Description: Glycine riboswitch aptamer: a 74-nucleotide RNA sequence from Pelagovum pacificum.
RNA sequence: CCGGGAGAGUGCGGAGACGAUCCCGCCGCCGAAGGAGCAACCGCCCCGGUAAACUCUCAGGCACAAGGGACCGG
Numbered sequence: 001c002c003g004g005g006a007g008a009g010u011g012c013g014g015a016g017a018c019g020a021u022c023c024c025g026c027c028g029c030c031g032a033a034g035g036a037g038c039a040a041c042c043g044c045c046c047c048g049g050u051a052a053a054c055u056c057u058c059a060g061g062c063a064c065a066a067g068g069g070a071c072c073g074g
Stems, first nucleotide, its partner, number of pairs: 001074004011026004028062003031058002035056003041049002

From the family's description: This family represents the bacterial glycine riboswitch. Lineage of the source: Bacteria > Pseudomonadota > Rhodobacterales > Paracoccaceae > Pelagovum. It scores 55 bits against the family's covariance model.